[Rfam]
RNA sequence: CUCUUAUCAAGAGUGGUGGAGGGACUGGCCCUGUGAAACCCAGCAACCAAUAUUUUUAAUAUAUGGUGCUAAAUCCUGCAACUUUUUUAGUUGAAAGAUGAGUA
Numbered sequence: 001c002u003c004u005u006a007u008c009a010a011g012a013g014u015g016g017u018g019g020a021g022g023g024a025c026u027g028g029c030c031c032u033g034u035g036a037a038a039c040c041c042a043g044c045a046a047c048c049a050a051u052a053u054u055u056u057u058a059a060u061a062u063a064u065g066g067u068g069c070u071a072a073a074u075c076c077u078g079c080a081a082c083u084u085u086u087u088u089a090g091u092u093g094a095a096a097g098a099u100g101a102g103u104a
Base pairs, nucleotide, nucleotide: 003102004101005100006099007098008097013041015040016039017038021031022030023029025078027076028075042070043069044068045067047066048065050062051061052060074096079093080092081091082090083089

The record is a 104-nucleotide RNA sequence from Intestinibacter bartlettii, which matches "SAM riboswitch aptamer (S box leader)" in Rfam. Taxonomically the source falls in Intestinibacter bartlettii (Bacteria, Clostridia, Peptostreptococcales, Peptostreptococcaceae). The family's consensus secondary structure is taken from published work.